[Rfam]
RNA sequence: CGUCCGCAGGAUCGCCCCCCGUCAGCGAGUUUCGCCCACGGGGGCAAAUCUC
Numbered sequence: 001c002g003u004c005c006g007c008a009g010g011a012u013c014g015c016c017c018c019c020c021g022u023c024a025g026c027g028a029g030u031u032u033c034g035c036c037c038a039c040g041g042g043g044g045c046a047a048a049u050c051u052c
Stems, first nucleotide, its partner, number of pairs: 016044007025035004
RNA: ffh sRNA
Organism: Jannaschia sp. CCS1